The family of this 99-nucleotide RNA from Paenibacillus albidus is "Purine riboswitch aptamer". A reference for the family is Mandal et al. (2003), "Riboswitches Control Fundamental Biochemical Pathways in Bacillus subtilis and Other Bacteria", Cell. About the family: Riboswitches are metabolite binding domains within certain messenger RNAs that serve as precision sensors for their corresponding targets.

[Rfam]
RNA sequence: AAUUACAAAUAGUCCUUUUUUCGUAUAUCCUUAAUAAUUGGUUUAAGGGUCUCUACCGGGAACCGUAAAUUUCUGGCUACGAAAAUAUGCCCGGGCAUA
Numbered sequence: 001a002a003u004u005a006c007a008a009a010u011a012g013u014c015c016u017u018u019u020u021u022c023g024u025a026u027a028u029c030c031u032u033a034a035u036a037a038u039u040g041g042u043u044u045a046a047g048g049g050u051c052u053c054u055a056c057c058g059g060g061a062a063c064c065g066u067a068a069a070u071u072u073c074u075g076g077c078u079a080c081g082a083a084a085a086u087a088u089g090c091c092c093g094g095g096c097a098u099a
Stems, first nucleotide, its partner, number of pairs: 018085008029048006057075006